Shown here is a 130-nucleotide RNA sequence from Robbsia andropogonis, a member of the family "Glycine riboswitch aptamer". NCBI's taxonomy places the organism under Bacteria, Pseudomonadati, Betaproteobacteria, Burkholderiaceae, Robbsia. About the family: This family represents the bacterial glycine riboswitch. Its family is annotated with glycine biosynthetic process in the Gene Ontology.

RNA sequence: CGGGCGCAUCGGGAGAGCGCGACGUCACGGGCCGGCAGGCAUGCGCAUUGCGCGGAUGCUUGCAUAGCCGACGUCGCCGCCGAAGGGGUAACACCCAUAAACUCUCAGGCAAAAGGACCGAUCGCGCCGG
Numbered sequence: 001c002g003g004g005c006g007c008a009u010c011g012g013g014a015g016a017g018c019g020c021g022a023c024g025u026c027a028c029g030g031g032c033c034g035g036c037a038g039g040c041a042u043g044c045g046c047a048u049u050g051c052g053c054g055g056a057u058g059c060u061u062g063c064a065u066a067g068c069c070g071a072c073g074u075c076g077c078c079g080c081c082g083a084a085g086g087g088g089u090a091a092c093a094c095c096c097a098u099a100a101a102c103u104c105u106c107a108g109g110c111a112a113a114a115g116g117a118c119c120g121a122u123c124g125c126g127c128c129g130g
Stems, first nucleotide, its partner, number of pairs: 004125003008122005019077008079110003082106002086104003